Rfam assigns this 124-nucleotide RNA from Mycobacterium kansasii to the family "Glycine riboswitch aptamer".
[Rfam]
RNA sequence: CGAUGCCUCUGGAAAGCGGUGACGACCCACGGGGGUCCUCACCCGCCGAUGGGGAAAGGCGCCCGCAGCCAUGGCGCCGAAUCUCUCAGGCGCCUGGUGCACGGGUGAGGACAGAGGGAGAGGA
Number, nucleotide and partner (000 for none) at each position: 001c000002g000003a000004u119005g000006c117007c116008u115009c114010u113011g112012g000013a000014a000015a000016g000017c000018g043019g042020u041021g040022a000023c000024g000025a000026c000027c000028c000029a000030c000031g000032g000033g000034g000035g000036u000037c000038c000039u000040c021041a020042c019043c018044c000045g091046c090047c089048g087049a086050u000051g000052g085053g084054g083055a000056a000057a000058g078059g077060c076061g075062c074063c073064c000065g000066c000067a000068g000069c000070c000071a000072u000073g063074g062075c061076g060077c059078c058079g000080a000081a000082u000083c054084u053085c052086u049087c048088a000089g047090g046091c045092g000093c000094c000095u000096g000097g000098u000099g000100c000101a000102c000103g000104g000105g000106u000107g000108a000109g000110g000111a000112c011113a010114g009115a008116g007117g006118g000119a004120g000121a000122g000123g000124a000
NCBI's taxonomy places the organism under Bacteria, Actinomycetota, Actinomycetes, Mycobacteriales, Mycobacterium. A search with the family's covariance model found it, with a score of 44 bits.